[Rfam]
Nucleotides: 193
Base pairs, nucleotide, nucleotide: 014033015032016031017030018029019028020027021026045085046084047083048082049081050080051079052078053077058073059072060071061070062069100162101161102160103159104158105157113154114153115152116151117150118149119148120147121146166186167185168184169183170182171181172180173179174178
Number, partner (000 for none) and nucleotide at each position: 001000a002000u003000a004000a005000c006000a007000a008000c009000g010000a011000u012000a013000a014033g015032g016031g017030c018029g019028a020027c021026c022000g023000u024000a025000a026021g027020g028019u029018c030017g031016c032015c033014c034000a035000u036000u037000u038000u039000g040000u041000c042000u043000c044000u045085u046084c047083g048082c049081u050080u051079a052078g053077c054000a055000c056000c057000u058073u059072u060071g061070g062069u063000u064000u065000g066000g067000c068000c069062g070061c071060c072059g073058a074000c075000a076000a077053g078052c079051u080050a081049a082048g083047u084046g085045g086000a087000a088000g089000a090000a091000c092000a093000g094000a095000c096000u097000g098000g099000c100162g101161u102160u103159a104158c105157g106000c107000a108000u109000a110000g111000c112000u113154g114153g115152c116151u117150g118149u119148u120147a121146g122000u123000u124000u125000u126000a127000u128000u129000c130000c131000u132000u133000a134000c135000u136000a137000g138000a139000u140000a141000g142000u143000u144000c145000a146121c147120u148119a149118a150117c151116a152115g153114u154113u155000u156000u157105u158104g159103u160102a161101a162100c163000c164000a165000u166186g167185a168184c169183c170182c171181g172180a173179g174178u175000u176000u177000u178174a179173c180172u181171c182170g183169g184168g185167u186166u187000u188000u189000u190000u191000u192000a193000u
The family of this 193-nucleotide RNA from Vibrio xiamenensis is "MicX Vibrio cholerae sRNA". A reference for the family is Davis and Waldor (2007), "RNase E-dependent processing stabilizes MicX, a Vibrio cholerae sRNA", Mol Microbiol. The family's RNA type in Rfam is small RNA. The match comes from Rfam's covariance-model search (173 bits).